[Rfam]
RNA sequence: UGGAAGAAUCGAUACACGAAGAUUUAUGAAUAAAUGAUUUUCGUCACAAUUUUUUCCUAGAGAAUAAUGUUUUCUGAUGACUGUAAAUUCUGAAGUGAUUAUUUACAGACAGAUACGGAGCUGACAAUU
Numbered sequence: 001u002g003g004a005a006g007a008a009u010c011g012a013u014a015c016a017c018g019a020a021g022a023u024u025u026a027u028g029a030a031u032a033a034a035u036g037a038u039u040u041u042c043g044u045c046a047c048a049a050u051u052u053u054u055u056c057c058u059a060g061a062g063a064a065u066a067a068u069g070u071u072u073u074c075u076g077a078u079g080a081c082u083g084u085a086a087a088u089u090c091u092g093a094a095g096u097g098a099u100u101a102u103u104u105a106c107a108g109a110c111a112g113a114u115a116c117g118g119a120g121c122u123g124a125c126a127a128u129u
Stems, first nucleotide, its partner, number of pairs: 002057006016044004023037002069121005081108003086103003
Rfam assigns this 129-nucleotide sequence from Fopius arisanus to the family "Small Cajal body specific RNA 8". For this family Rfam cites "RNomics: an experimental approach that identifies 201 candidates for novel, small, non-messenger RNAs in mouse" (Huttenhofer et al., EMBO J, 2001). Rfam 15.1 lists 955 matches to the family in 741 species. Rfam's curators write: scaRNAs are a specific class of small nuclear RNAs which localise to the Cajal bodies and guide the modification of RNA polymerase II transcribed spliceosomal RNAs U1, U2, U4, U5 and U12. Its family is annotated with nucleolus, RNA processing and Cajal body in the Gene Ontology. The family's consensus secondary structure is taken from published work. NCBI's taxonomy places the organism under Eukaryota, Altocrustacea, Apocrita, Ichneumonoidea, Fopius.